[Rfam]
RNA sequence: AUUUCCAGAAAAGUGAUGGACAGAGUCCUUUUGUCUGUCGCUUUUCUGGAAUUUU
Numbered sequence: 001a002u003u004u005c006c007a008g009a010a011a012a013g014u015g016a017u018g019g020a021c022a023g024a025g026u027c028c029u030u031u032u033g034u035c036u037g038u039c040g041c042u043u044u045u046c047u048g049g050a051a052u053u054u055u
Base pairs, nucleotide, nucleotide: 001053003051004050005049006048007047008046009045010044011043012042013041014040015039016038017037018036019035020034021033

Overview
MIR8008 microRNA precursor family: a 55-nucleotide RNA sequence from Solanum tuberosum. The family's consensus secondary structure was predicted with RNAalifold.